[Rfam]
RNA sequence: AGCCAUGUAGAAAGCACAAAGCGAACUAUUCUUUCGCCUUUUACUAAAGAAUACGUGUGCUUACUACUAAUAGAAGCAUACGUUUAUUUUUGGAUGGCUGUUCUCAUUAGAGCGU
Number, nucleotide and partner (000 for none) at each position: 001a000002g000003c076004c000005a000006u073007g000008u066009a065010g064011a000012a062013a061014g060015c059016a058017c057018a056019a000020a000021g000022c000023g000024a000025a000026c000027u053028a052029u051030u050031c049032u048033u047034u046035c000036g000037c000038c000039u000040u000041u000042u000043a000044c000045u000046a034047a033048a032049g031050a030051a029052u028053a027054c000055g000056u018057g017058u016059g015060c014061u013062u012063a000064c010065u009066a008067c000068u000069a000070a000071u000072a000073g006074a000075a000076g003077c000078a000079u000080a000081c000082g000083u000084u000085u000086a000087u000088u000089u000090u000091u000092g000093g000094a115095u000096g000097g113098c112099u111100g000101u109102u000103c000104u000105c000106a000107u000108u000109a101110g000111a099112g098113c097114g000115u094

A member of the RNA family "U5 spliceosomal RNA" from Hevea brasiliensis, 115 nucleotides long. The source organism's lineage runs through Eukaryota, Streptophyta, Spermatophyta, rosids and Hevea. By type it is a spliceosomal small nuclear RNA. Rfam links the family to the GO terms U5 snRNP and spliceosomal tri-snRNP complex assembly. It scores 71 bits against the family's covariance model. U5 RNA is a component of both types of known spliceosome. The precise function of this molecule is unknown, though it is known that the 5' loop is required for splice site selection and p220 binding, and that both the 3' stem-loop and the Sm site are important for Sm protein binding and cap methylation.